RNA sequence: UAGAGAGGACGACCUCCCAAGCUCGUCUAUAGAGAGGACGACCUC
Numbered sequence: 001u002a003g004a005g006a007g008g009a010c011g012a013c014c015u016c017c018c019a020a021g022c023u024c025g026u027c028u029a030u031a032g033a034g035a036g037g038a039c040g041a042c043c044u045c
Base pairs, nucleotide, nucleotide: 001020003018005016006015007014008013034045035044036043037042
RNA: Guanidine-II riboswitch aptamer (mini-ykkC)
Organism: Musca domestica